[Rfam]
RNA sequence: GAAUGUUACAGCUCUUUUAGAAUUUGUCUAGCAGUUUUUCUGUUUUUUACUGGGAAGCCCCA
Numbered sequence: 001g002a003a004u005g006u007u008a009c010a011g012c013u014c015u016u017u018u019a020g021a022a023u024u025u026g027u028c029u030a031g032c033a034g035u036u037u038u039u040c041u042g043u044u045u046u047u048u049a050c051u052g053g054g055a056a057g058c059c060c061c062a
Stems, first nucleotide, its partner, number of pairs: 034059001036057007044049001